[Rfam]
A member of the RNA family "Small nucleolar RNA SNORD87" from Melopsittacus undulatus, 79 nucleotides long. On this family, see Gogolevskaya et al., Gene 2002: "U87 RNA, a novel C/D box small nucleolar RNA from mammalian cells". It scores 51 bits against the family's covariance model. Gene Ontology terms of the family: RNA processing and nucleolus.

RNA sequence: GCCGGCACAAUGAUGAUUACUCUUUGCCGUUUACCCAGCUGAAAUGUGUGAUGAGAAGUGUUGUAUCUGAGGUGCCAGC
Numbered sequence: 001g002c003c004g005g006c007a008c009a010a011u012g013a014u015g016a017u018u019a020c021u022c023u024u025u026g027c028c029g030u031u032u033a034c035c036c037a038g039c040u041g042a043a044a045u046g047u048g049u050g051a052u053g054a055g056a057a058g059u060g061u062u063g064u065a066u067c068u069g070a071g072g073u074g075c076c077a078g079c
Stems, first nucleotide, its partner, number of pairs: 001079002004076004